[Rfam]
RNA sequence: UGGCGCCCAACGUUAGGGCUGGACACUGAAGAUCCAGUGAGGGAAGACGACAUCCCAAAAGAAUGCGUUCAACAAGAAUUUUUCACUCUGGACUCGCCACACAUAUUUCCUCGGAUUUGCCGUGGGAGCCUGCCUCGCCAUAAACUGAAAAAGUAAGUAAAAACGUCCGAUUAGGGGGUAAGAAUUAAGCCAGCAUGAACUUUAUGUUAAACAAUUACAAGAAGCCUUAAAGACGUGAGGAGUAAAGGUUAAAAUAGAGGAUCUAUUAAGAUUCUUUGAAUUCGUUAAGGAAACGUGUCCUU
Number, nucleotide and partner (000 for none) at each position: 001u000002g000003g000004c000005g000006c031007c000008c000009a000010a000011c000012g026013u025014u000015a000016g000017g000018g000019c000020u000021g000022g000023a000024c000025a013026c012027u000028g000029a000030a000031g006032a000033u000034c000035c000036a053037g048038u047039g000040a000041g000042g000043g000044a000045a000046g000047a038048c037049g000050a000051c000052a000053u036054c000055c000056c000057a000058a000059a000060a000061g000062a000063a000064u000065g000066c000067g000068u000069u000070c000071a000072a000073c000074a000075a000076g000077a000078a000079u000080u000081u000082u000083u000084c000085a000086c000087u000088c000089u000090g000091g000092a000093c000094u000095c000096g000097c000098c000099a000100c000101a000102c000103a000104u000105a000106u000107u155108u000109c153110c000111u150112c000113g000114g000115a000116u143117u000118u140119g000120c000121c137122g136123u000124g134125g133126g000127a000128g000129c000130c000131u000132g000133c125134c124135u000136c122137g121138c000139c000140a118141u000142a000143a116144a000145c000146u000147g000148a000149a000150a111151a000152a000153g109154u000155a107156a000157g000158u000159a000160a000161a000162a000163a179164c178165g000166u177167c176168c175169g000170a000171u000172u000173a000174g000175g168176g167177g166178g164179u163180a000181a000182g000183a000184a000185u000186u229187a228188a227189g225190c224191c000192a000193g000194c000195a000196u000197g000198a000199a000200c000201u000202u000203u000204a000205u000206g000207u000208u000209a000210a000211a000212c000213a000214a000215u000216u000217a000218c000219a000220a000221g000222a000223a000224g190225c189226c000227u188228u187229a186230a000231a000232g000233a000234c000235g000236u278237g277238a276239g275240g274241a273242g272243u271244a000245a000246a264247g263248g262249u261250u260251a000252a000253a000254a000255u000256a000257g000258a000259g000260g250261a249262u248263c247264u246265a000266u000267u000268a000269a000270g000271a243272u242273u241274c240275u239276u238277u237278g236279a000280a000281u000282u000283c000284g000285u000286u000287a302288a301289g300290g299291a298292a000293a000294c000295g000296u000297g000298u291299c290300c289301u288302u287

A member of the RNA family "Mason-Pfizer monkey virus packaging signal" from Nannospalax galili, 302 nucleotides long. The source organism's lineage runs through Eukaryota, Craniata, Dipnotetrapodomorpha, Muroidea and Nannospalax. The base pairs follow the family's consensus structure, which was predicted with PFOLD. A reference for the family is Harrison et al. (1995), "Secondary structure model of the Mason-Pfizer monkey virus 5' leader sequence: identification of a structural motif common to a variety of retroviruses", J Virol.